[Rfam]
RNA sequence: GGGGACCUUCGGGGCCCUUGACCGAACAGACGGGCCCCCAGGGCCCGCGAAGCAGACGGAAGACAGGAA
Number, nucleotide and partner (000 for none) at each position: 001g018002g017003g016004g015005a000006c014007c013008u012009u000010c000011g000012g008013g007014g006015c004016c003017c002018u001019u000020g000021a000022c000023c000024g000025a000026a000027c000028a000029g000030a000031c047032g046033g045034g044035c043036c042037c041038c000039c000040a000041g037042g036043g035044c034045c033046c032047g031048c000049g000050a000051a000052g000053c000054a000055g000056a000057c000058g000059g000060a000061a000062g000063a000064c000065a000066g000067g000068a000069a000
RNA: L2-Alphaproteobacteria ribosomal protein leader
Organism: Rubellimicrobium sp. CFH 75288